[Rfam]
RNA sequence: CUGUGUUCUCAGGGCGGGGUGAAAUUCCCCACCGGCGGUUAAAGCCCGCGAGCGCCCAUCAAAAGUGGGGUCAGCAGAUCCGGUGAAAUUCCGGGGCCGACGGUUAAAGUCCGGAUGAAAGAGAACGUUC
Numbered sequence: 001c002u003g004u005g006u007u008c009u010c011a012g013g014g015c016g017g018g019g020u021g022a023a024a025u026u027c028c029c030c031a032c033c034g035g036c037g038g039u040u041a042a043a044g045c046c047c048g049c050g051a052g053c054g055c056c057c058a059u060c061a062a063a064a065g066u067g068g069g070g071u072c073a074g075c076a077g078a079u080c081c082g083g084u085g086a087a088a089u090u091c092c093g094g095g096g097c098c099g100a101c102g103g104u105u106a107a108a109g110u111c112c113g114g115a116u117g118a119a120a121g122a123g124a125a126c127g128u129u130c
Stems, first nucleotide, its partner, number of pairs: 003128008017029003031110002033099002035049004044097002052075002079095005101113003
This 130-nucleotide RNA from Marivivens sp. JLT3646 belongs to the Rfam family "FMN riboswitch aptamer (RFN element)". Lineage of the source: Bacteria > Pseudomonadati > Rhodobacterales > Paracoccaceae > Marivivens. The RFN element is a highly conserved domain that is found frequently in the 5'-untranslated regions of prokaryotic mRNAs that encode for flavin mononucleotide (FMN) biosynthesis and transport proteins. The match comes from Rfam's covariance-model search (122 bits).